[Rfam]
Shown here is a 123-nucleotide RNA sequence from Enterobacter sp. 638, a member of the family "isrA Hfq binding RNA". The family's RNA type in Rfam is small RNA.
RNA sequence: ACCAUCACCGGCGUGUCGGUGCUGAAUCCCGCCUCUUCCAGCCAGUUACCGUUCAGGCGCAGGCUGGGGCUGCGGGAAUACCAGGUGGCGGUGUAGUUGUGAUGGUAAAAAUGCCGGACGCUG
Number, nucleotide and partner (000 for none) at each position: 001a000002c000003c000004a000005u000006c000007a000008c000009c000010g000011g000012c000013g000014u000015g000016u000017c000018g000019g000020u000021g000022c000023u074024g073025a000026a071027u000028c069029c068030c067031g000032c000033c000034u000035c000036u000037u000038c000039c000040a000041g000042c000043c066044a065045g064046u063047u059048a000049c057050c056051g000052u000053u000054c000055a000056g050057g049058c000059g047060c000061a000062g000063g046064c045065u044066g043067g030068g029069g028070c000071u026072g000073c024074g023075g000076g000077a000078a000079u000080a000081c000082c000083a000084g000085g000086u000087g000088g000089c000090g000091g000092u000093g000094u000095a000096g000097u000098u000099g000100u116101g115102a000103u000104g000105g000106u000107a000108a000109a000110a000111a000112u000113g000114c000115c101116g100117g000118a000119c000120g000121c000122u000123g000